[Rfam]
This 337-nucleotide sequence from Sedimentibacter saalensis belongs to the Rfam family "Bacterial RNase P class A".
Nucleotides: 337
Base pairs, nucleotide, nucleotide: 002332003331004330005329006328007327008326009325011322013301014300015299016298017297018296020035021034022033023032024031025030040320041319042318044317045316046315047314048313049204050203051202052201056237057236058235059234061200062199063198064197065196066080067079068078069077070076081095082093083092084091085090096195097194101193102192103189104188105187117136118135119132120131121130122129123128144162145161147159148158149157164184165182166181167180168179169178170177171176208259209258210257211256218247219246220245221244228242229241230240231239232238266285267284268283269282270281271280272279273278
Number, partner (000 for none) and nucleotide at each position: 001000a002332g003331a004330g005329u006328a007327a008326a009325u010000u011322a012000u013301a014300c015299a016298g017297u018296c019000g020035c021034a022033u023032g024031c025030a026000g027000c028000a029000a030025u031024g032023c033022a034021u035020g036000a037000g038000g039000a040320a041319a042318g043000u044317c045316c046315g047314a048313g049204c050203u051202c052201c053000a054000c055000a056237g057236a058235g059234c060000a061200g062199g063198g064197u065196g066080c067079u068078g069077g070076g071000u072000a073000a074000u075000a076070c077069c078068c079067a080066g081095u082093g083092a084091g085090g086000g087000u088000g089000a090085c091084c092083u093082u094000a095081a096195g097194g098000a099000u100000a101193g102192u103189g104188c105187a106000a107000c108000a109000g110000a111000a112000a113000g114000a115000g116000a117136c118135c119132g120131c121130c122129g123128c124000g125000c126000a127000a128123g129122c130121g131120g132119u133000a134000a135118g136117g137000a138000u139000g140000g141000a142000a143000a144162g145161g146000c147159g148158a149157g150000g151000u152000a153000a154000g155000a156000g157149c158148u159147c160000a161145c162144c163000a164184g165182c166181a167180a168179u169178u170177a171176g172000g173000c174000g175000a176171c177170u178169a179168a180167u181166u182165g183000g184164c185000u186000a187105u188104g189103u190000a191000a192102a193101c194097c195096c196065c197064a198063c199062c200061u201052g202051g203050a204049g205000c206000a207000a208259g209258a210257c211256c212000a213000a214000g215000a216000a217000c218247g219246g220245a221244c222000c223000g224000u225000a226000g227000a228242g229241u230240g231239g232238c233000u234059g235058c236057u237056c238232g239231u240230c241229a242228c243000a244221g245220u246219c247218c248000a249000a250000a251000u252000g253000g254000u255000a256211g257210g258209u259208u260000g261000c262000u263000g264000g265000a266285g267284u268283c269282u270281g271280c272279c273278g274000g275000u276000a277000a278273c279272g280271g281270c282269a283268g284267g285266c286000g287000u288000a289000g290000a291000u292000a293000g294000a295000u296018g297017a298016c299015u300014g301013u302000u303000u304000a305000a306000u307000a308000c309000a310000g311000a312000a313048c314047u315046c316045g317044g318042c319041u320040u321000a322011u323000g324000u325009a326008u327007u328006u329005a330004c331003u332002c333000a334000c335000c336000a337000a